Shown here is a 96-nucleotide sequence from Clostridium sp. chh4-2, a member of the family "Purine riboswitch aptamer".
RNA sequence: UUUAAUAGUAUUCACAAAACUUAUAUAUGCUCAUAAUUGGUUGAGCGUCUCUACCAACUACCGUAAUAGUUGCCUAUAAGUUUUCACAGGGAUUUU
Dot-bracket structure: .................((((((((...(((((........)))))........((((((......))))))..))))))))..............
Numbered sequence: 001u002u003u004a005a006u007a008g009u010a011u012u013c014a015c016a017a018a019a020c021u022u023a024u025a026u027a028u029g030c031u032c033a034u035a036a037u038u039g040g041u042u043g044a045g046c047g048u049c050u051c052u053a054c055c056a057a058c059u060a061c062c063g064u065a066a067u068a069g070u071u072g073c074c075u076a077u078a079a080g081u082u083u084u085c086a087c088a089g090g091g092a093u094u095u096u
Stems, first nucleotide, its partner, number of pairs: 018082008029046005055072006

NCBI's taxonomy places the organism under Bacteria, Clostridia, Eubacteriales, Clostridiaceae, Clostridium. It scores 56 bits against the family's covariance model. Riboswitches are metabolite binding domains within certain messenger RNAs that serve as precision sensors for their corresponding targets. The family's consensus secondary structure is taken from published work.